A member of the RNA family "S4-Flavobacteria ribosomal protein leader", 39 nucleotides long. Clan: Ribosomal Protein S4 Leader clan.
RNA sequence: GAUUUUCGAAGGAUAAGCAUAAGACCUUAAUUCAUUAUC
Numbered sequence: 001g002a003u004u005u006u007c008g009a010a011g012g013a014u015a016a017g018c019a020u021a022a023g024a025c026c027u028u029a030a031u032u033c034a035u036u037a038u039c
Base pairs, nucleotide, nucleotide: 001039002038003037006034008033009028010027011026012025
The base pairs follow the family's consensus structure, which is taken from published work.
Rfam classes the family as a cis-regulatory leader.
Rfam's curators put it in the seed alignment.
The literature on the family includes a 2020 paper in BMC Microbiol by Eckert and Weinberg, "Discovery of 20 novel ribosomal leader candidates in bacteria and archaea".